[Rfam]
RNA sequence: AUGGCCUUUAUGACGUGGCUAGAUUAAAGCCUUCGGGACGUCUAGUUGCUGACGUUGCCAU
Numbered sequence: 001a002u003g004g005c006c007u008u009u010a011u012g013a014c015g016u017g018g019c020u021a022g023a024u025u026a027a028a029g030c031c032u033u034c035g036g037g038a039c040g041u042c043u044a045g046u047u048g049c050u051g052a053c054g055u056u057g058c059c060a061u
Stems, first nucleotide, its partner, number of pairs: 001061005015049010030037002
Selenocysteine insertion sequence 1: a 61-nucleotide sequence from Python bivittatus.
The base pairs follow the family's consensus structure, which is taken from published work.
The family has 61 seed sequences and 3,793 matches in Rfam 15.1.
Its family is annotated with selenocysteine incorporation in the Gene Ontology.